The family of this 103-nucleotide sequence from Pandoraea thiooxydans is "Group II catalytic intron D1-D4-1".
Lineage of the source: Bacteria > Pseudomonadota > Burkholderiales > Burkholderiaceae > Pandoraea.
[Rfam]
RNA sequence: CUACCGGCGUCGCAAGGCGACGGGAUGCGCGAACAGAAGUCAGCAGAGGGCAUAGUAGGUCGAGGCGAAGGUGGCGAGCCGAUGAGCACCGAGGCCGAAGGCC
Numbered sequence: 001c002u003a004c005c006g007g008c009g010u011c012g013c014a015a016g017g018c019g020a021c022g023g024g025a026u027g028c029g030c031g032a033a034c035a036g037a038a039g040u041c042a043g044c045a046g047a048g049g050g051c052a053u054a055g056u057a058g059g060u061c062g063a064g065g066c067g068a069a070g071g072u073g074g075c076g077a078g079c080c081g082a083u084g085a086g087c088a089c090c091g092a093g094g095c096c097g098a099a100g101g102c103c
Stems, first nucleotide, its partner, number of pairs: 001027001004023003008019004040047002049103003058096004